[Rfam]
RNA: glmS glucosamine-6-phosphate activated ribozyme aptamer
Organism: Thermovenabulum gondwanense
RNA sequence: UAAAAUCAAAAAGCGCCUGAGCUUGAAAGGGACCUUCCUUUUAAGCUGACGAGGAUGGGGUUUAUCGAGAAUUCGGCGGGUGCCCCACGGAGCCUGCCCUCCGAAGGAAGCCUACAAAACCGGCAAGCGAUUGCCGGGACAAAGGGGCUUCCAGGCAGAAAG
Numbered sequence: 001u002a003a004a005a006u007c008a009a010a011a012a013g014c015g016c017c018u019g020a021g022c023u024u025g026a027a028a029g030g031g032a033c034c035u036u037c038c039u040u041u042u043a044a045g046c047u048g049a050c051g052a053g054g055a056u057g058g059g060g061u062u063u064a065u066c067g068a069g070a071a072u073u074c075g076g077c078g079g080g081u082g083c084c085c086c087a088c089g090g091a092g093c094c095u096g097c098c099c100u101c102c103g104a105a106g107g108a109a110g111c112c113u114a115c116a117a118a119a120c121c122g123g124c125a126a127g128c129g130a131u132u133g134c135c136g137g138g139a140c141a142a143a144g145g146g147g148c149u150u151c152c153a154g155g156c157a158g159a160a161a162g
Base pairs, nucleotide, nucleotide: 020047021046022045023044024043025042026041027040029038056087057086058085059084060083065076066075067074068073088103089102090101091100092099106152107151108150109149110148111147112146120137121136122135123134124133125132126131